RNA: permuted transfer-messenger RNA
Organism: Microvirga terrestris
Nucleotides: 286
Base pairs, nucleotide, nucleotide: 001202002201003200004199005198015191016190017189026180027179028178030176031175032174036052037051038050039049040048053161054160055159056158057157058156059155203219204218205217206216
Number, partner (000 for none) and nucleotide at each position: 001202g002201a003200u004199c005198g006000u007000a008000g009000a010000g011000g012000c013000a014000g015191a016190g017189u018000g019000g020000a021000a022000u023000a024000g025000g026180c027179g028178u029000u030176u031175a032174g033000g034000a035000c036052g037051c038050g039049g040048g041000u042000u043000c044000g045000a046000u047000u048040c049039c050038c051037g052036c053161c054160g055159c056158c057157u058156c059155c060000a061000c062000c063000a064000c065000a066000a067000g068000c069000a070000c071000a072000c073000c074000g075000g076000c077000c078000g079000u080000c081000c082000a083000a084000g085000u086000u087000c088000c089000g090000c091000a092000a093000g094000a095000c096000g097000g098000g099000u100000u101000u102000u103000g104000g105000g106000c107000g108000a109000a110000u111000g112000g113000c114000c115000u116000u117000u118000c119000g120000u121000u122000g123000a124000g125000g126000u127000c128000a129000u130000g131000c132000c133000g134000c135000u136000g137000u138000c139000c140000c141000g142000g143000u144000g145000u146000g147000u148000u149000u150000g151000u152000g153000a154000u155059g156058g157057g158056g159055g160054c161053g162000a163000c164000a165000u166000g167000g168000g169000u170000u171000c172000g173000a174032c175031u176030g177000g178028g179027c180026g181000c182000a183000a184000u185000a186000a187000a188000g189017g190016c191015u192000a193000g194000g195000c196000u197000g198005c199004g200003a201002u202001u203219a204218g205217g206216c207000u208000g209000a210000g211000c212000u213000a214000c215000g216206g217205c218204c219203u220000u221000g222000a223000u224000a225000g226000u227000g228000c229000a230000a231000a232000a233000c234000u235000c236000a237000u238000a239000a240000a241000u242000g243000c244000c245000a246000a247000c248000g249000a250000u251000a252000a253000c254000g255000u256000u257000g258000a259000c260000a261000u262000g263000g264000g265000u266000g267000c268000a269000g270000u271000g272000c273000g274000c275000c276000u277000c278000g279000c280000g281000g282000c283000g284000u285000a286000a